[Rfam]
RNA sequence: UUCGGUCCUCGGUAGUGGCCUCCGGUACGACGUCAGUCGUCCGUGGGCCUCGAUCGAAGACCGCU
Numbered sequence: 001u002u003c004g005g006u007c008c009u010c011g012g013u014a015g016u017g018g019c020c021u022c023c024g025g026u027a028c029g030a031c032g033u034c035a036g037u038c039g040u041c042c043g044u045g046g047g048c049c050u051c052g053a054u055c056g057a058a059g060a061c062c063g064c065u
Stems, first nucleotide, its partner, number of pairs: 003063005009057005017049005023043003027040004